[Rfam]
RNA sequence: GUGCCUUAAACUAAUGAGUAAGGAAAAUUACGAGCCUUGGUAACGCUUGGCUUAGCUUAACUUCGCCGGUUGUACCAUCAGCGAUGGGAAGACCGUGUUGAGCACAAAUUUUUGGAGGGGCACAGGUCGUCCCAUCGAGCCUGGCUCACUACUUUCGAGCUGGUUCUGGUGAAGCGAUCUGCCCA
Numbered sequence: 001g002u003g004c005c006u007u008a009a010a011c012u013a014a015u016g017a018g019u020a021a022g023g024a025a026a027a028u029u030a031c032g033a034g035c036c037u038u039g040g041u042a043a044c045g046c047u048u049g050g051c052u053u054a055g056c057u058u059a060a061c062u063u064c065g066c067c068g069g070u071u072g073u074a075c076c077a078u079c080a081g082c083g084a085u086g087g088g089a090a091g092a093c094c095g096u097g098u099u100g101a102g103c104a105c106a107a108a109u110u111u112u113u114g115g116a117g118g119g120g121c122a123c124a125g126g127u128c129g130u131c132c133c134a135u136c137g138a139g140c141c142u143g144g145c146u147c148a149c150u151a152c153u154u155u156c157g158a159g160c161u162g163g164u165u166c167u168g169g170u171g172a173a174g175c176g177a178u179c180u181g182c183c184c185a
Stems, first nucleotide, its partner, number of pairs: 004023005032053005039046001055103007118184004124180007133169001137166005144160004
RNA: U12 minor spliceosomal RNA